[Rfam]
RNA sequence: GGUUUUUGAAGUGAGAAAGGGCUCCUCACACGCUGAAAACAGUAAACAGAGAUGCAGGAUACGCCGCCCUGCCAAAAACC
Numbered sequence: 001g002g003u004u005u006u007u008g009a010a011g012u013g014a015g016a017a018a019g020g021g022c023u024c025c026u027c028a029c030a031c032g033c034u035g036a037a038a039a040c041a042g043u044a045a046a047c048a049g050a051g052a053u054g055c056a057g058g059a060u061a062c063g064c065c066g067c068c069c070u071g072c073c074a075a076a077a078a079c080c
Stems, first nucleotide, its partner, number of pairs: 001080008011029005020065003031049001032043004054072005
Dot-bracket structure: ((((((((..(((((....[[[..))))).(((((....)))).....)....(((((....]]]..)))))))))))))

Shown here is an 80-nucleotide RNA, a member of the family "skipping-rope RNA". Rfam's curators put it in the seed alignment.